[Rfam]
Nucleotides: 129
Base pairs, nucleotide, nucleotide: 003054004053005052006051007050008049011046012045013044014043018039019038020037021036022035023034073079085126086125087124088123089122090121091120092119093118094117095116
Number, partner (000 for none) and nucleotide at each position: 001000g002000u003054g004053a005052a006051g007050u008049u009000g010000a011046u012045c013044a014043c015000a016000a017000g018039c019038a020037a021036a022035c023034a024000u025000a026000u027000a028000c029000c030000c031000c032000u033000u034023u035022g036021u037020u038019u039018g040000a041000c042000c043014g044013u045012g046011a047000a048000a049008a050007a051006u052005u053004u054003c055000u056000c057000c058000c059000a060000u061000c062000c063000c064000c065000u066000u067000u068000g069000u070000u071000c072000g073079u074000a075000u076000u077000u078000a079073a080000a081000u082000a083000g084000a085126g086125a087124a088123a089122a090121g091120g092119c093118c094117a095116u096000u097000u098000a099000c100000a101000a102000a103000c104000a105000g106000a107000c108000a109000g110000g111000u112000u113000u114000g115000u116095a117094u118093g119092g120091c121090c122089u123088u124087u125086u126085c127000u128000u129000u
Annotation:
Rfam assigns this 129-nucleotide RNA from Bacillus sp. Y1 to the family "RNA Staph. aureus E (RoxS)". It scores 97 bits against the family's covariance model. Rfam's curators write: It was shown to be regulated by the presence of nitric oxide (NO). The source organism's lineage runs through Bacteria, Bacillati, Bacillota, Caryophanales and Bacillus. The family's consensus secondary structure is taken from published work. By type it is a small RNA. Rfam links the family to the GO term regulation of translational initiation.